[Rfam]
Rfam assigns this 168-nucleotide sequence from Luteimonas sp. J16 to the family "FMN riboswitch aptamer (RFN element)". Lineage of the source: Bacteria > Pseudomonadati > Pseudomonadota > Lysobacterales > Luteimonas.
Nucleotides: 168
Stems, first nucleotide, its partner, number of pairs: 004165007017029003031148002033137002035079004082113002117133005139151003
Number, partner (000 for none) and nucleotide at each position: 001000a002000a003000a004165c005164g006163u007162c008161u009160u010159c011000g012000g013000g014000g015000c016000g017029g018028g019027g020000u021000g022000g023000a024000a025000g026000u027019c028018c029017c030000c031148a032147c033137c034136g035079g036078c037077g038076g039000u040000a041000g042000g043000c044000g045000u046000g047000g048000c049000g050000c051000g052000a053000c054000c055000c056000g057000g058000c059000g060000g061000a062000u063000c064000g065000c066000g067000c068000g069000c070000g071000c072000g073000a074000g075000c076038c077037c078036g079035c080000g081000a082113g083112c084000g085000c086000c087000c088000g089000g090000c091000c092000g093000g094000c095000a096000u097000u098000c099000c100000c101000g102000g103000c104000c105000g106000g107000g108000g109000u110000c111000a112083g113082c114000a115000g116000a117133u118132c119131c120130g121129g122000u123000c124000c125000a126000a127000u128000g129121c130120c131119g132118g133117a134000g135000c136034c137033g138000a139151c140150g141149g142000u143000c144000a145000c146000a147032g148031u149141c150140c151139g152000g153000a154000u155000g156000a157000a158000a159010g160009a161008a162007g163006a164005c165004g166000c167000g168000u